[Rfam]
RNA sequence: AUGGUCUGGGGAAAGGCUCCUGCGUUGCUGAACCCGCGCGGCUGUGGGUGCAGCCUUGUACCAGGCAGCCCGACCCUGACCUAGAGAAAAUUCCCGGGAGCAGUUCCCCCCGGGUUUGAAUUUGCAGUAACAGGUGUGAGCAUUCUAGCAGCAGUUUGGUGAUCAUGUAUGAUACUGCAAACAGGA
Numbered sequence: 001a002u003g004g005u006c007u008g009g010g011g012a013a014a015g016g017c018u019c020c021u022g023c024g025u026u027g028c029u030g031a032a033c034c035c036g037c038g039c040g041g042c043u044g045u046g047g048g049u050g051c052a053g054c055c056u057u058g059u060a061c062c063a064g065g066c067a068g069c070c071c072g073a074c075c076c077u078g079a080c081c082u083a084g085a086g087a088a089a090a091u092u093c094c095c096g097g098g099a100g101c102a103g104u105u106c107c108c109c110c111c112g113g114g115u116u117u118g119a120a121u122u123u124g125c126a127g128u129a130a131c132a133g134g135u136g137u138g139a140g141c142a143u144u145c146u147a148g149c150a151g152c153a154g155u156u157u158g159g160u161g162a163u164c165a166u167g168u169a170u171g172a173u174a175c176u177g178c179a180a181a182c183a184g185g186a
Stems, first nucleotide, its partner, number of pairs: 003081004008076003015070004019065004024061002027054004032049003093114003096110003100106001121181009131171002137165003141161004147156003
Dot-bracket structure: ..((((.(((....((((((((.((.((((.(((............))).)))).....)))))).))))...))).))))...........((((((.(.....).))).)))......(((((((((.((....(((.((((..(((....))).)))).)))....)).))))))))).....

Rfam assigns this 186-nucleotide RNA from Gulo gulo to the family "Small Cajal body specific RNA 16". Rfam describes the family as follows. scaRNAs are a specific class of small nuclear RNAs which localise to the Cajal bodies and guide the modification of RNA polymerase II transcribed spliceosomal RNAs U1, U2, U4, U5 and U12. ACA47 belongs to the H/ACA box class of guide RNAs as it has the predicted hairpin-hinge-hairpin-tail structure, the conserved H/ACA-box motifs and is found associated with GAR1. ACA47 is predicted to guide the pseudouridylation of residue U5 of the U1 spliceosomal snRNA. The match comes from Rfam's covariance-model search (206 bits). The base pairs follow the family's consensus structure, which was predicted with RNAfold.